A member of the RNA family "Makes More Granules Regulator RNA (mmgR)" from Roseomonas acroporae, 73 nucleotides long. It is annotated as a small RNA. The base pairs follow the family's consensus structure.

RNA sequence: CGCUGCUGUCUUUCUUGGACGUUUCCUCCCUGACUAGGCGGCGCCUCGCGGUGCCGCCCUUUUUUUGCCCGCC
Numbered sequence: 001c002g003c004u005g006c007u008g009u010c011u012u013u014c015u016u017g018g019a020c021g022u023u024u025c026c027u028c029c030c031u032g033a034c035u036a037g038g039c040g041g042c043g044c045c046u047c048g049c050g051g052u053g054c055c056g057c058c059c060u061u062u063u064u065u066u067g068c069c070c071g072c073c
Base pairs, nucleotide, nucleotide: 008020009019010018011017037058038057039056040055041054042053043052044051045050